A member of the RNA family "Purine riboswitch aptamer" from Vallitalea guaymasensis, 102 nucleotides long. Rfam describes the family as follows. Riboswitches are metabolite binding domains within certain messenger RNAs that serve as precision sensors for their corresponding targets.
[Rfam]
RNA sequence: UAUAAUAAAAAUUAAUUGUUUCGUAUAAAUUCUCUAAUAUGGUGAGAAAGUCUCUACCCUGUAACCGUAAAAUACAGGACUACGAUUUUAUAGUAUAAUUAG
Numbered sequence: 001u002a003u004a005a006u007a008a009a010a011a012u013u014a015a016u017u018g019u020u021u022c023g024u025a026u027a028a029a030u031u032c033u034c035u036a037a038u039a040u041g042g043u044g045a046g047a048a049a050g051u052c053u054c055u056a057c058c059c060u061g062u063a064a065c066c067g068u069a070a071a072a073u074a075c076a077g078g079a080c081u082a083c084g085a086u087u088u089u090a091u092a093g094u095a096u097a098a099u100u101a102g
Base pairs, nucleotide, nucleotide: 018088021085022084023083024082025081030048031047032046033045034044058078059077060076061075062074063073